RNA sequence: GUUCGGUUGGGGUAAACUUCGCGAAAGUGAAGGACGCUAAAGUCAUGGGUCUAAGGCCUAAUUUUGAAAGCACGUCGAAUAGACUUUUGAAAUUAAGCGAGGAUCGCCAGACUACAAGA
Numbered sequence: 001g002u003u004c005g006g007u008u009g010g011g012g013u014a015a016a017c018u019u020c021g022c023g024a025a026a027g028u029g030a031a032g033g034a035c036g037c038u039a040a041a042g043u044c045a046u047g048g049g050u051c052u053a054a055g056g057c058c059u060a061a062u063u064u065u066g067a068a069a070g071c072a073c074g075u076c077g078a079a080u081a082g083a084c085u086u087u088u089g090a091a092a093u094u095a096a097g098c099g100a101g102g103a104u105c106g107c108c109a110g111a112c113u114a115c116a117a118g119a
Base pairs, nucleotide, nucleotide: 012037013036017032018031019030020029021028022027041113042112043111044110046109047108048107049104050103051102056098057097059095060094061093062092063091064090065089066088067087068086069085070084